This 102-nucleotide RNA sequence from Sediminibacillus albus belongs to the Rfam family "Purine riboswitch aptamer". It scores 83 bits against the family's covariance model.
[Rfam]
RNA sequence: AUAUAGGAAUAGAAAUACCGUCGUAUAAUUUUGGGGAUAAGGCCCAUGAGUUUCUACCGGACUACCGUAAAUGGUCUGACUACGCUGGUGAAUUGCAAAUGU
Numbered sequence: 001a002u003a004u005a006g007g008a009a010u011a012g013a014a015a016u017a018c019c020g021u022c023g024u025a026u027a028a029u030u031u032u033g034g035g036g037a038u039a040a041g042g043c044c045c046a047u048g049a050g051u052u053u054c055u056a057c058c059g060g061a062c063u064a065c066c067g068u069a070a071a072u073g074g075u076c077u078g079a080c081u082a083c084g085c086u087g088g089u090g091a092a093u094u095g096c097a098a099a100u101g102u
Stems, first nucleotide, its partner, number of pairs: 018088003022084004029049002032046004058078007
Background:
Lineage of the source: Bacteria > Bacillota > Bacilli > Caryophanales > Sediminibacillus. The family's consensus secondary structure is taken from published work.